[Rfam]
Mammalian CPEB3 ribozyme: a 77-nucleotide RNA from Alligator mississippiensis. The organism belongs to Alligator, within Eukaryota. Its family is annotated with RNA nuclease activity in the Gene Ontology. It scores 48 bits against the family's covariance model.
RNA sequence: AUGGGCCAUAAUGGUCAUAGCAAAAAUGUUCAUGUCACAGCCCCUGUCAGAUUCCAAUGAAUCUGCUAAAUUCUGAU
Numbered sequence: 001a002u003g004g005g006c007c008a009u010a011a012u013g014g015u016c017a018u019a020g021c022a023a024a025a026a027u028g029u030u031c032a033u034g035u036c037a038c039a040g041c042c043c044c045u046g047u048c049a050g051a052u053u054c055c056a057a058u059g060a061a062u063c064u065g066c067u068a069a070a071u072u073c074u075g076a077u
Stems, first nucleotide, its partner, number of pairs: 013042003019077001021075002024072002027037002048065007